RNA sequence: GCGCCGGUGGUCUAGUGGGAGGACAUGAGCUUCCCAAGCUCAUAGCCCGGGUUCAAUUCCCGGUCGGCGCA
Numbered sequence: 001g002c003g004c005c006g007g008u009g010g011u012c013u014a015g016u017g018g019g020a021g022g023a024c025a026u027g028a029g030c031u032u033c034c035c036a037a038g039c040u041c042a043u044a045g046c047c048c049g050g051g052u053u054c055a056a057u058u059c060c061c062g063g064u065c066g067g068c069g070c071a
Stems, first nucleotide, its partner, number of pairs: 001070007010024004026042005047063005
A member of the RNA family "tRNA" from Natrarchaeobaculum sulfurireducens, 71 nucleotides long. NCBI's taxonomy places the organism under Archaea, Methanobacteriota, Halobacteriales, Natrialbaceae, Natrarchaeobaculum. By type it is a transfer RNA. About the family: Transfer RNA (tRNA) molecules are approximately 80 nucleotides in length. The base pairs follow the family's consensus structure, which is taken from published work. A search with the family's covariance model found it, with a score of 64 bits.